[Rfam]
RNA sequence: CUGGACUAUGGCAAUGGAGCUUGCCACAACCGCCAUUGGAUCUUGACAUGCCCUCAACUGGGUUGCCAACGUCGAUGGAUGAUGGCUCCUACUUUCCC
Dot-bracket structure: .........[[[[..((((((]]]].......(((((((................................))))))).....)))))).........
Numbered sequence: 001c002u003g004g005a006c007u008a009u010g011g012c013a014a015u016g017g018a019g020c021u022u023g024c025c026a027c028a029a030c031c032g033c034c035a036u037u038g039g040a041u042c043u044u045g046a047c048a049u050g051c052c053c054u055c056a057a058c059u060g061g062g063u064u065g066c067c068a069a070c071g072u073c074g075a076u077g078g079a080u081g082a083u084g085g086c087u088c089c090u091a092c093u094u095u096c097c098c
Stems, first nucleotide, its partner, number of pairs: 010025004016089006033078007
Rfam assigns this 98-nucleotide RNA sequence from Leptolyngbyaceae cyanobacterium JSC-12 to the family "Fluoride riboswitch aptamer (crcB RNA motif)". The match comes from Rfam's covariance-model search (42 bits). The source organism's lineage runs through Bacteria, Bacillati, Cyanobacteriota, Cyanophyceae and Leptolyngbyaceae.